[Rfam]
RNA sequence: AUACGACAAAGGCAAACCUUCCGAAAGGUUGGGACGCAAAGCCAUGGGUCUAAGGCUCGAAGGAGCUAUGAUUGCCAGGCUGCCGGA
Numbered sequence: 001a002u003a004c005g006a007c008a009a010a011g012g013c014a015a016a017c018c019u020u021c022c023g024a025a026a027g028g029u030u031g032g033g034a035c036g037c038a039a040a041g042c043c044a045u046g047g048g049u050c051u052a053a054g055g056c057u058c059g060a061a062g063g064a065g066c067u068a069u070g071a072u073u074g075c076c077a078g079g080c081u082g083c084c085g086g087a
Stems, first nucleotide, its partner, number of pairs: 012037002017032002021028002040081004045077003048072003055066004
Dot-bracket structure: ...........((...((..((....))..))...))..((((.((((((....((((....))))...)))..)))))))......